Shown here is a 107-nucleotide sequence from Thermoactinomyces sp. AS95, a member of the family "pan motif". Taxonomically the source falls in Thermoactinomyces (Bacteria, Bacillota, Bacilli, Caryophanales). The match comes from Rfam's covariance-model search (49 bits). The family's consensus secondary structure is taken from published work. By type it is a cis-regulatory element.
[Rfam]
RNA sequence: UAGGCAACAUCUGUGGAAGAGUUGCACUAUCGUUUUCCUGUUUUUUUCAAAAGGUCAAUAUUUGAGUUUAUGAAUCUGCUUCGAGCCAUUGGGACGGGGACAGAAAG
Numbered sequence: 001u002a003g004g005c006a007a008c009a010u011c012u013g014u015g016g017a018a019g020a021g022u023u024g025c026a027c028u029a030u031c032g033u034u035u036u037c038c039u040g041u042u043u044u045u046u047u048c049a050a051a052a053g054g055u056c057a058a059u060a061u062u063u064g065a066g067u068u069u070a071u072g073a074a075u076c077u078g079c080u081u082c083g084a085g086c087c088a089u090u091g092g093g094a095c096g097g098g099g100a101c102a103g104a105a106a107g
Stems, first nucleotide, its partner, number of pairs: 001029003004025005010020002076103003079099005086093002